Notes:
Shown here is an 86-nucleotide RNA sequence from Chinchilla lanigera, a member of the family "Small nucleolar RNA SNORD86". The literature on the family includes a 2001 paper in Biochem Biophys Res Commun by Filippini et al., "U86, a novel snoRNA with an unprecedented gene organization in yeast". U86 belongs to the C/D family of snoRNAs. It is the human orthologue of Xenopus laevis U86 and has no identified RNA target. NCBI's taxonomy places the organism under Eukaryota, Bilateria, Vertebrata, Gnathostomata, Chinchilla.

[Rfam]
RNA sequence: AAUCACAGUGAUGGCCUAUCAGGGCUCCCUGACCCAUGCAAACCUCUGUGGUGGGGGUGAUGGCCAGUCCUGGUGUCUGAGUGAUU
Number, nucleotide and partner (000 for none) at each position: 001a086002a085003u084004c083005a082006c081007a000008g000009u000010g077011a076012u075013g000014g000015c000016c000017u000018a074019u073020c072021a071022g070023g069024g068025c067026u066027c063028c062029c000030u060031g000032a058033c057034c056035c055036a000037u000038g000039c053040a052041a000042a049043c048044c000045u000046c000047u000048g043049u042050g000051g000052u040053g039054g000055g035056g034057g033058u032059g000060a030061u000062g028063g027064c000065c000066a026067g025068u024069c023070c022071u021072g020073g019074u018075g012076u011077c010078u000079g000080a000081g006082u005083g004084a003085u002086u001